Description: Rfam assigns this 154-nucleotide sequence from Rhizobium sp. NFR07 to the family "Rhizobiales sRNA Atu_C7". The base pairs follow the family's consensus structure, which was predicted with WAR. Lineage of the source: Bacteria > Pseudomonadota > Alphaproteobacteria > Hyphomicrobiales > Rhizobium.

[Rfam]
RNA sequence: CAGCCUGGAGCGCGGAAGAUAUACAGGUCCGCGCAGAUAUGAAUUGCCUCGCGUUCCCCCCCGGCGCGUGUUGAAGGCCUGCAGGCGCUCCCUCCCGCGCCUGCGCGCCAUGCGCCCGCCUCGCCUCGCUCGCACGCCUGCGGCGAGGCAUUUU
Numbered sequence: 001c002a003g004c005c006u007g008g009a010g011c012g013c014g015g016a017a018g019a020u021a022u023a024c025a026g027g028u029c030c031g032c033g034c035a036g037a038u039a040u041g042a043a044u045u046g047c048c049u050c051g052c053g054u055u056c057c058c059c060c061c062c063g064g065c066g067c068g069u070g071u072u073g074a075a076g077g078c079c080u081g082c083a084g085g086c087g088c089u090c091c092c093u094c095c096c097g098c099g100c101c102u103g104c105g106c107g108c109c110a111u112g113c114g115c116c117c118g119c120c121u122c123g124c125c126u127c128g129c130u131c132g133c134a135c136g137c138c139u140g141c142g143g144c145g146a147g148g149c150a151u152u153u154u
Stems, first nucleotide, its partner, number of pairs: 063116008081104007123149008132141002
By type it is a small RNA. A search with the family's covariance model found it, with a score of 62 bits.